[Rfam]
RNA sequence: GUGCCAUACUUCACAGGUCGAUCCUUCGGGGCCGACUAGGUGAUCCACACCGGUGUUUCGGACAGCGGUUCGAUUCCGCUCAGCUCCAUUCACCCCGCUCCCGGCGCCAUCGGGAGCCCAUCAGGGGGCUGCAAUGGUUUCGACGGGGCAUGAGGAGGGUGACUGAAGCCUGCUCGGUAAGAGCAAACCCGUAACAGCGAACAACAUCGUUCGUUUCUCCCGUCAAGCCGCCCCUGUGGCUGCCUGACACUCUUAACGGAGACGGGGUGAGGUCAGCCUUGUCACCCAAAUGACCCGUGGGGCCCUGGAAGGGGCC
Numbered sequence: 001g002u003g004c005c006a007u008a009c010u011u012c013a014c015a016g017g018u019c020g021a022u023c024c025u026u027c028g029g030g031g032c033c034g035a036c037u038a039g040g041u042g043a044u045c046c047a048c049a050c051c052g053g054u055g056u057u058u059c060g061g062a063c064a065g066c067g068g069u070u071c072g073a074u075u076c077c078g079c080u081c082a083g084c085u086c087c088a089u090u091c092a093c094c095c096c097g098c099u100c101c102c103g104g105c106g107c108c109a110u111c112g113g114g115a116g117c118c119c120a121u122c123a124g125g126g127g128g129c130u131g132c133a134a135u136g137g138u139u140u141c142g143a144c145g146g147g148g149c150a151u152g153a154g155g156a157g158g159g160u161g162a163c164u165g166a167a168g169c170c171u172g173c174u175c176g177g178u179a180a181g182a183g184c185a186a187a188c189c190c191g192u193a194a195c196a197g198c199g200a201a202c203a204a205c206a207u208c209g210u211u212c213g214u215u216u217c218u219c220c221c222g223u224c225a226a227g228c229c230g231c232c233c234c235u236g237u238g239g240c241u242g243c244c245u246g247a248c249a250c251u252c253u254u255a256a257c258g259g260a261g262a263c264g265g266g267g268u269g270a271g272g273u274c275a276g277c278c279u280u281g282u283c284a285c286c287c288a289a290a291u292g293a294c295c296c297g298u299g300g301g302g303c304c305c306u307g308g309a310a311g312g313g314g315c316c
Stems, first nucleotide, its partner, number of pairs: 017036004022031002039164003043160004050155002053151008064080005081131007171185005226245002230240003258287002261283008301316006
Dot-bracket structure: ................((((.((......)).))))..(((.((((...((.((((((((...(((((.......)))))(((((((.....................................)))))))............))))))))..)).)))).)))......(((((.....)))))........................................((..(((.....)))...))............((.((((((((.......))))))))..)).............((((((....))))))
A member of the RNA family "Cyanobacteria transfer-messenger RNA" from Synechococcus sp. CBW1004, 316 nucleotides long. It is annotated as a non-coding RNA gene. The literature on the family includes a 2002 paper in Nucleic Acids Res by Laslett et al., "BRUCE: a program for the detection of transfer-messenger RNA genes in nucleotide sequences".